[Rfam]
Shown here is a 77-nucleotide RNA from Pieris macdunnoughi, a member of the family "mir-750 microRNA precursor family". NCBI's taxonomy places the organism under Eukaryota, Metazoa, Arthropoda, Eumetabola, Pieris. Pairs were carried over by alignment from the consensus structure, which was predicted with RNAalifold. A search with the family's covariance model found it, with a score of 75 bits.
RNA sequence: UACAUAUCUGAGUUGGACAGGGGAUCUUGACAGUUUGCUUAACGCUGCCAGAUCUAUCUUUCCAGCUCAUAUGUGAG
Numbered sequence: 001u002a003c004a005u006a007u008c009u010g011a012g013u014u015g016g017a018c019a020g021g022g023g024a025u026c027u028u029g030a031c032a033g034u035u036u037g038c039u040u041a042a043c044g045c046u047g048c049c050a051g052a053u054c055u056a057u058c059u060u061u062c063c064a065g066c067u068c069a070u071a072u073g074u075g076a077g
Stems, first nucleotide, its partner, number of pairs: 001077001003075005009069009019059003022055006029048001031047004
Dot-bracket structure: (.(((((.(((((((((.(((((((((.(.((((.........))))).)))))).))).))))))))).))))).)